[Rfam]
RNA sequence: AUAUUGCACGUAGAGUGUAGGUGAGAAGCUGCGUUCAGGUUAGAGCCGAGCGAAGCGAGACAGCGUUGCGCUUGUCGCAACGACCCGAAGGGUGAGGCCAAAGGCCGAAUAAUCCUGCACGACCCACCA
Numbered sequence: 001a002u003a004u005u006g007c008a009c010g011u012a013g014a015g016u017g018u019a020g021g022u023g024a025g026a027a028g029c030u031g032c033g034u035u036c037a038g039g040u041u042a043g044a045g046c047c048g049a050g051c052g053a054a055g056c057g058a059g060a061c062a063g064c065g066u067u068g069c070g071c072u073u074g075u076c077g078c079a080a081c082g083a084c085c086c087g088a089a090g091g092g093u094g095a096g097g098c099c100a101a102a103g104g105c106c107g108a109a110u111a112a113u114c115c116u117g118c119a120c121g122a123c124c125c126a127c128c129a
Stems, first nucleotide, its partner, number of pairs: 015120007022112001032094002035092002040089002043086001047057002064082006
The family of this 129-nucleotide RNA sequence from Providencia sneebia is "RtT RNA". Rfam's curators write: This family represents a bacterial cis-regulatory element known as RtT RNA. The exact function of RtT is unknown although it is thought that it may be involved in changing the cellular response in relation to amino acid starvation. Pairs were carried over by alignment from the consensus structure, which is taken from published work. The literature on the family includes a 1991 paper in Nucleic Acids Res by Bosl and Kersten, "A novel RNA product of the tyrT operon of Escherichia coli".